Rfam assigns this 126-nucleotide sequence from Streptomyces sp. Root264 to the family "Streptomyces RNA 3920".
Rfam describes the family as follows. Identified by deep sequencing of transcriptome at the end of exponential growth phase. Sequencing size consistent with northern blot size. Streptomyces specific.
It is annotated as a small RNA.
A reference for the family is Vockenhuber et al. (2011), "Deep sequencing-based identification of small non-coding RNAs in Streptomyces coelicolor", RNA Biol.
RNA sequence: GAUAGGUCUCUGCCGCUAGAGUGAUUGGACACUGACACAGAGUCAACUAGCCUUGUGGACGCGGUUCUUCGCGCGCAGAACCGCGGGCGGUCCGAGCCACGAGGGGGGAGGCUCGGACCGUCCGUC
Dot-bracket structure: (.(((....))).)((((..(((......)))((((.....))))..))))........(((((....)))))..(......)..(((((((((((((.(......)..)))))))))))))....
Numbered sequence: 001g002a003u004a005g006g007u008c009u010c011u012g013c014c015g016c017u018a019g020a021g022u023g024a025u026u027g028g029a030c031a032c033u034g035a036c037a038c039a040g041a042g043u044c045a046a047c048u049a050g051c052c053u054u055g056u057g058g059a060c061g062c063g064g065u066u067c068u069u070c071g072c073g074c075g076c077a078g079a080a081c082c083g084c085g086g087g088c089g090g091u092c093c094g095a096g097c098c099a100c101g102a103g104g105g106g107g108g109a110g111g112c113u114c115g116g117a118c119c120g121u122c123c124g125u126c
Stems, first nucleotide, its partner, number of pairs: 001014001003012003015051004021032003033045004060073005076083001086122013100107001